[Rfam]
RNA: FMN riboswitch aptamer (RFN element)
RNA sequence: AACAAUCUUCAGGGUUGGGUGCAAUUCCCUACCGGCAGUUAAAGUCUGCGAGCGCAAGCUGAAAAGGUGAAAUUCCUUUACCGACGGUAAAGUCCGGAUGAGAGAGGAUACAU
Numbered sequence: 001a002a003c004a005a006u007c008u009u010c011a012g013g014g015u016u017g018g019g020u021g022c023a024a025u026u027c028c029c030u031a032c033c034g035g036c037a038g039u040u041a042a043a044g045u046c047u048g049c050g051a052g053c054g055c056a057a058g059c060u061g062a063a064a065a066g067g068u069g070a071a072a073u074u075c076c077u078u079u080a081c082c083g084a085c086g087g088u089a090a091a092g093u094c095c096g097g098a099u100g101a102g103a104g105a106g107g108a109u110a111c112a113u
Base pairs, nucleotide, nucleotide: 005109006108007107008106009105010104017029018028019027031093032092033083034082035049036048037047038046044081045080052059053058063079064078065077066076067075085096086095087094